[Rfam]
RNA sequence: CGCCUUUGUGUUGCCCAUUCACUUUCGGAAACUAGUGAAUGCGGUGUCAAAAAAGGCACAAAGCAAUGCUUUCGCAGCCUUUUCCUCCCCUUGGGCUCUGUGUCUCGGGCGCAGGAGCUGCGUAAGUGACAUGC
Numbered sequence: 001c002g003c004c005u006u007u008g009u010g011u012u013g014c015c016c017a018u019u020c021a022c023u024u025u026c027g028g029a030a031a032c033u034a035g036u037g038a039a040u041g042c043g044g045u046g047u048c049a050a051a052a053a054a055g056g057c058a059c060a061a062a063g064c065a066a067u068g069c070u071u072u073c074g075c076a077g078c079c080u081u082u083u084c085c086u087c088c089c090c091u092u093g094g095g096c097u098c099u100g101u102g103u104c105u106c107g108g109g110c111g112c113a114g115g116a117g118c119u120g121c122g123u124a125a126g127u128g129a130c131a132u133g134c
Base pairs, nucleotide, nucleotide: 002057003056004055005054006053007052009049010048012046013045014044015043016041017040018039019038020037021036022035023034070126071125072124073122074121075120076119077118078117083116084115085114086113088111089109090108093104094103
The record is a 134-nucleotide sequence from Jaculus jaculus, which matches "Small nucleolar RNA SNORA13" in Rfam. Rfam classes the family as an H/ACA-box small nucleolar RNA. ACA13 is a member of the H/ACA class of snoRNA that guide the sites of modification of uridines to pseudouridines. Rfam links the family to the GO terms nucleolus and RNA processing. A search with the family's covariance model found it, with a score of 122 bits. The source organism's lineage runs through Eukaryota, Tetrapoda, Amniota, Boreoeutheria and Jaculus.